Annotation: A member of the RNA family "S4-Bacteroidia ribosomal protein leader", 31 nucleotides long. On this family, see Eckert and Weinberg, BMC Microbiol 2020: "Discovery of 20 novel ribosomal leader candidates in bacteria and archaea". It is one of the family's seed sequences. The family's consensus secondary structure is taken from published work.

RNA sequence: GAUUGUAUUAAACCUCUCGCAAUCGCGGCUG
Numbered sequence: 001g002a003u004u005g006u007a008u009u010a011a012a013c014c015u016c017u018c019g020c021a022a023u024c025g026c027g028g029c030u031g
Base pairs, nucleotide, nucleotide: 001024002023003022004021005020006019